RNA sequence: CAAGUAAAUCGCCUUAUCGCUCUGCAUGAAAGUGUAGGGAGGAAAGUCCGAACACCAAAGUGCAACAUAGUGGUUAAUGGCCACCGGUCGUGAGAUUAGGAAAAGUGCAACAGAAAGCAAGUACAGGUUAAGCUGUAGUGAAAUCAGGUAAACUCUAUGUGGUGCAAUGUCAUGUAUACCAACGUUUGAGGGCUGCACGUUCGAUUGUUGGAGGGUAGACAGCUAAAGUGUAUUGGUAACAAUGCAUUCAGAUAAAUGAUAAGGGUCACGCCUUGGCGCGAUACAGAAUUCGGCUUAUAGAUUUACUUGUAAA
Numbered sequence: 001c002a003a004g005u006a007a008a009u010c011g012c013c014u015u016a017u018c019g020c021u022c023u024g025c026a027u028g029a030a031a032g033u034g035u036a037g038g039g040a041g042g043a044a045a046g047u048c049c050g051a052a053c054a055c056c057a058a059a060g061u062g063c064a065a066c067a068u069a070g071u072g073g074u075u076a077a078u079g080g081c082c083a084c085c086g087g088u089c090g091u092g093a094g095a096u097u098a099g100g101a102a103a104a105g106u107g108c109a110a111c112a113g114a115a116a117g118c119a120a121g122u123a124c125a126g127g128u129u130a131a132g133c134u135g136u137a138g139u140g141a142a143a144u145c146a147g148g149u150a151a152a153c154u155c156u157a158u159g160u161g162g163u164g165c166a167a168u169g170u171c172a173u174g175u176a177u178a179c180c181a182a183c184g185u186u187u188g189a190g191g192g193c194u195g196c197a198c199g200u201u202c203g204a205u206u207g208u209u210g211g212a213g214g215g216u217a218g219a220c221a222g223c224u225a226a227a228g229u230g231u232a233u234u235g236g237u238a239a240c241a242a243u244g245c246a247u248u249c250a251g252a253u254a255a256a257u258g259a260u261a262a263g264g265g266u267c268a269c270g271c272c273u274u275g276g277c278g279c280g281a282u283a284c285a286g287a288a289u290u291c292g293g294c295u296u297a298u299a300g301a302u303u304u305a306c307u308u309g310u311a312a313a
Base pairs, nucleotide, nucleotide: 001309002308003307004306005305006304007303008302009301010300011298012264013263014262015261016260017259018258020039021038022037023036024035025034026033027032044296045295046294048293049292050291051290052289053164054163055162056161060198061197062196063195065160066159067158068157069156070084071083072082073081074080085099086097087096088095089094100155101154105153106152107149108148122137123136124135125134126133168221169220170219171218179211180210181209182208183207190202191201192200193199228247229246230245231244232243233242234241235240
RNA: Bacterial RNase P class A
Organism: Flavobacteriaceae bacterium MAR_2010_72